[Rfam]
RNA sequence: GGAGGUAGGCCCUCCGGUGGCGGCUUCUGGAAGCGGCCAUCAAACCACCGUAAGCUGCGCCGGUAAAGAGCCGGUGUGGUGAGCGUUACGGAAAAGGCGUAGCUUGACUGCGUCAGGU
Numbered sequence: 001g002g003a004g005g006u007a008g009g010c011c012c013u014c015c016g017g018u019g020g021c022g023g024c025u026u027c028u029g030g031a032a033g034c035g036g037c038c039a040u041c042a043a044a045c046c047a048c049c050g051u052a053a054g055c056u057g058c059g060c061c062g063g064u065a066a067a068g069a070g071c072c073g074g075u076g077u078g079g080u081g082a083g084c085g086u087u088a089c090g091g092a093a094a095a096g097g098c099g100u101a102g103c104u105u106g107a108c109u110g111c112g113u114c115a116g117g118u
Stems, first nucleotide, its partner, number of pairs: 001015005016041006023034004046117001048091006054080002057077003061073004096114006